Shown here is a 51-nucleotide RNA from Cyanobacteria bacterium FACHB-DQ100, a member of the family "Nitrogen stress-induced RNA 1". A reference for the family is Ionescu et al. (2010), "Heterocyst-specific transcription of NsiR1, a non-coding RNA encoded in a tandem array of direct repeats in cyanobacteria", J Mol Biol. The pairing is the family consensus, mapped onto this sequence. The family's RNA type in Rfam is small RNA.
RNA sequence: UGGUAGAUGCACCCUGAUAAUUACCCCUGGCUUCGGUCGGGGGUUUUUUGU
Dot-bracket structure: .(((......)))..........((((((((....))))))))........